[Rfam]
Nucleotides: 144
Stems, first nucleotide, its partner, number of pairs: 028045003047087010064077005
Number, partner (000 for none) and nucleotide at each position: 001000c002000c003000g004000u005000a006000c007000a008000c009000u010000u011000c012000a013000u014000u015000g016000g017000g018000g019000a020000g021000u022000a023000g024000c025000c026000g027000c028045u029044g030043u031000u032000u033000a034000c035000g036000c037000a038000g039000g040000u041000a042000a043030a044029c045028a046000g047087g048086u049085g050084a051083u052082g053081a054080u055079c056078a057000a058000c059000a060000u061000a062000a063000u064077u065076g066075c067074u068073c069000a070000a071000c072000a073068g074067a075066g076065c077064g078056u079055g080054g081053u082052c083051a084050u085049c086048a087047u088000a089000g090000c091000a092000a093000a094000g095000u096000u097000c098000a099000a100000u101000g102000g103000u104000g105000c106000u107000u108000a109000g110000a111000a112000a113000u114000a115000a116000g117000c118000u119000a120000u121000c122000u123000u124000u125000u126000g127000u128000u129000g130000g131000c132000a133000a134000g135000a136000c137000c138000u139000u140000u141000g142000a143000u144000u
The record is a 144-nucleotide RNA from Acinetobacter larvae, which matches "Manganese Mn2+ riboswitch aptamer (yybP-ykoY)" in Rfam.
The organism belongs to Acinetobacter, within Bacteria.
From the family's description: This RNA was originally discovered in E. coli during a large scale screen and was named SraF. The family was later found to exist upstream of related families of protein genes in many bacteria, including the the yybP and ykoK genes in B. subtilis. The specific functions of these proteins are unknown, but this structured RNA element may be involved in their genetic regulation as a riboswitch.